[Rfam]
RNA sequence: UAAGCUCCACACAAGUAUUAACUUGAGCAUGAGGCCAUCACGAAGUUGAUGUAACACCAGUAGUUAAGAACUAGGGAUAGUUGGUAACUACAUUAGGUGU
Numbered sequence: 001u002a003a004g005c006u007c008c009a010c011a012c013a014a015g016u017a018u019u020a021a022c023u024u025g026a027g028c029a030u031g032a033g034g035c036c037a038u039c040a041c042g043a044a045g046u047u048g049a050u051g052u053a054a055c056a057c058c059a060g061u062a063g064u065u066a067a068g069a070a071c072u073a074g075g076g077a078u079a080g081u082u083g084g085u086a087a088c089u090a091c092a093u094u095a096g097g098u099g100u
Stems, first nucleotide, its partner, number of pairs: 012025005036051005054100005060091007070081003
Shown here is a 100-nucleotide RNA sequence, a member of the family "COG3943 RNA". The base pairs follow the family's consensus structure, which is taken from published work. The sequence is in the family's curated seed alignment. It is annotated as a small RNA.